[Rfam]
Background
Rfam assigns this 107-nucleotide RNA from Pectobacterium atrosepticum to the family "Yersinia sRNA 224". Rfam 15.1 lists 130 matches to the family in 13 species. It is annotated as a small RNA. A reference for the family is Righetti et al. (2016), "Temperature-responsive in vitro RNA structurome of Yersinia pseudotuberculosis", Proc Natl Acad Sci U S A.
RNA sequence: AACCACCUUCACAACGCCCGUAGUGCGGUAGUAACGGAUAGAUCGUAAAGACGCUGCAAGUACGUCCAUGUAAGCUCGGAUUGCGCCAUCCCUGGCGCAAACGCUUU
Numbered sequence: 001a002a003c004c005a006c007c008u009u010c011a012c013a014a015c016g017c018c019c020g021u022a023g024u025g026c027g028g029u030a031g032u033a034a035c036g037g038a039u040a041g042a043u044c045g046u047a048a049a050g051a052c053g054c055u056g057c058a059a060g061u062a063c064g065u066c067c068a069u070g071u072a073a074g075c076u077c078g079g080a081u082u083g084c085g086c087c088a089u090c091c092c093u094g095g096c097g098c099a100a101a102c103g104c105u106u107u
Stems, first nucleotide, its partner, number of pairs: 013107002016104002019027003030076002041066003045063003052056001081100008